The family of this 197-nucleotide sequence from Pseudomonas sp. 8AS is "RgsA sRNA". Rfam's curators write: This small RNA (sRNA) was computationally identified in the genome of the opportunistic pathogen Pseudomonas aeruginosa and its expression verified by northern blot analysis. P16 sRNA appears to be conserved across several Pseudomonas species and Azotobacter vinelandii. The source organism's lineage runs through Bacteria, Pseudomonadota, Pseudomonadales, Pseudomonadaceae and Pseudomonas. Rfam links the family to the GO terms sRNA-mediated gene silencing, response to hydrogen peroxide and response to oxidative stress. A reference for the family is Livny et al. (2006), "Identification of 17 Pseudomonas aeruginosa sRNAs and prediction of sRNA-encoding genes in 10 diverse pathogens using the bioinformatic tool sRNAPredict2", Nucleic Acids Res. The family's consensus secondary structure was predicted with RNAalifold.
[Rfam]
RNA sequence: CAGCAGCCGCAGUGGUAUUCCAAAUCCGUUUAAAAAAGCGCGGGAACCCGCCUGGACGCUGGGGAAACAUGACCAAUACUUGAGCUUACUGGUGCGCGGCAUCUCCCCCCAAGUGCCCCGCCAGGCAAGAUACCGUGGACCGCGUAUCUUGAUUUACUCCUAAUGGUCUUGACCCGGAUUCAUCCCCCAGAACCCGG
Dot-bracket structure: .......................................(...(............................................(((...((.(.(((..........))).).)).))).(((((((((.......).))))))))............)...).....((((.(((........))).))))